[Rfam]
RNA sequence: AGCAGCCCUCGGCGGCCCGGGGGGCGGGCGGCGGUGCCCGUCCCGGGGCUGCGCGAGGCACAGGCG
Number, nucleotide and partner (000 for none) at each position: 001a000002g065003c064004a000005g000006c000007c058008c057009u056010c055011g054012g052013c051014g050015g049016c048017c047018c046019g000020g044021g043022g000023g042024g041025c040026g039027g038028g037029c036030g035031g000032c000033g000034g000035u030036g029037c028038c027039c026040g025041u024042c023043c021044c020045g000046g018047g017048g016049c015050u014051g013052c012053g000054c011055g010056a009057g008058g007059c000060a000061c000062a000063g000064g003065c002066g000

Background
Rfam assigns this 66-nucleotide RNA sequence from Homo sapiens to the family "mir-4449 microRNA precursor family". Rfam's curators put it in the seed alignment. Lineage of the source: Eukaryota > Tetrapoda > Haplorrhini > Homininae > Homo.